RNA sequence: CGGAGACCGAUAAGUGAACAACUGCAGACGGGAACUUAAGAGAAACCGGAAGGAGAGCCCUCAGGGUGAAAGCGUUUUAAAGAGUAUACGAUAAAAAAUAGCUUUAAAACCCACCAAGGAUGAAGAGAUAGCAUCCAAGGAGCUAAAGAGAAUCUCACUUUAGACACCUGGGGAACUCGAACUAAGAGA
Numbered sequence: 001c002g003g004a005g006a007c008c009g010a011u012a013a014g015u016g017a018a019c020a021a022c023u024g025c026a027g028a029c030g031g032g033a034a035c036u037u038a039a040g041a042g043a044a045a046c047c048g049g050a051a052g053g054a055g056a057g058c059c060c061u062c063a064g065g066g067u068g069a070a071a072g073c074g075u076u077u078u079a080a081a082g083a084g085u086a087u088a089c090g091a092u093a094a095a096a097a098a099u100a101g102c103u104u105u106a107a108a109a110c111c112c113a114c115c116a117a118g119g120a121u122g123a124a125g126a127g128a129u130a131g132c133a134u135c136c137a138a139g140g141a142g143c144u145a146a147a148g149a150g151a152a153u154c155u156c157a158c159u160u161u162a163g164a165c166a167c168c169u170g171g172g173g174a175a176c177u178c179g180a181a182c183u184a185a186g187a188g189a
Base pairs, nucleotide, nucleotide: 001048002047003046011038012037013036014035015034060172061171062170063169064168065167074110075109076108077107078106079105080104081103082102118136119135120134121133122132125156126155127154128153129152143163144162145161146160147159148158